[Rfam]
RNA: mir-103/107 microRNA precursor family
Organism: Scleropages formosus
RNA sequence: CUUUGCUGUUGGCCUCUUUACAGUGCUGCCUUGUGGCUUGUGAAUCAAGCAGCAUUGUACAGGGCUAUGAGAGCACUG
Numbered sequence: 001c002u003u004u005g006c007u008g009u010u011g012g013c014c015u016c017u018u019u020a021c022a023g024u025g026c027u028g029c030c031u032u033g034u035g036g037c038u039u040g041u042g043a044a045u046c047a048a049g050c051a052g053c054a055u056u057g058u059a060c061a062g063g064g065c066u067a068u069g070a071g072a073g074c075a076c077u078g
Base pairs, nucleotide, nucleotide: 014064015063016062017061019059020058021057022056023055024054025053026052027051028050030049031048032047033046